Description
The family of this 70-nucleotide sequence from Brachybacterium sp. UMB0905 is "DUF3800-IX RNA". The base pairs follow the family's consensus structure, which is taken from published work. Lineage of the source: Bacteria > Actinomycetota > Micrococcales > Dermabacteraceae > Brachybacterium. Rfam's curators write: Actinobacteria, Firmicutes (1 example), Nitrospirae, Proteobacteria, Verrucomicrobia (1 example). The match comes from Rfam's covariance-model search (45 bits).
[Rfam]
RNA sequence: ACCCCCGGUCUCGAAUAGUCGCCGUAUGGUGCGCGUGCCUCCGAUCGGAGCGCUAGGGCUGGGGGUCGAA
Numbered sequence: 001a002c003c004c005c006c007g008g009u010c011u012c013g014a015a016u017a018g019u020c021g022c023c024g025u026a027u028g029g030u031g032c033g034c035g036u037g038c039c040u041c042c043g044a045u046c047g048g049a050g051c052g053c054u055a056g057g058g059c060u061g062g063g064g065g066u067c068g069a070a
Base pairs, nucleotide, nucleotide: 001066002065003064004063005062006061008059010058011057012056018034019033020031021030022029023028037053038052039050040049041048